ffh sRNA: a 53-nucleotide RNA from Candidatus Pelagibacter sp. IMCC9063.
By type it is a small RNA.
The base pairs follow the family's consensus structure, which is taken from published work.
[Rfam]
Nucleotides: 053
Stems, first nucleotide, its partner, number of pairs: 016045007025036004
Number, partner (000 for none) and nucleotide at each position: 001000u002000u003000u004000g005000g006000a007000g008000g009000a010000g011000a012000u013000c014000a015000a016045c017044a018043c019042u020041a021040g022039u023000c024000a025036g026035c027034g028033a029000g030000g031000a032000u033028u034027c035026g036025c037000c038000c039022a040021c041020u042019a043018g044017u045016g046000c047000c048000u049000u050000u051000u052000u053000u